[Rfam]
RNA sequence: CACCCGGCCGGAUCCCGUGGGGGGAAUCCGAACCGGGGACAAAGGGGAGCGCCCCGCUGGCCGGC
Dot-bracket structure: (.(((((.((((((((.....))).)))))..)))))......((......)).........)..
Source information
The family of this 65-nucleotide RNA from Streptomyces boluensis is "Streptomyces RNA 2736". NCBI's taxonomy places the organism under Bacteria, Bacillati, Actinomycetota, Actinomycetes, Streptomyces. Rfam describes the family as follows. Identified by deep sequencing of transcriptome at the end of exponential growth phase. Appears smaller on northern blot than sequencing transcript. This indicates processing step. On this family, see Vockenhuber et al., RNA Biol 2011: "Deep sequencing-based identification of small non-coding RNAs in Streptomyces coelicolor". Pairs were carried over by alignment from the consensus structure.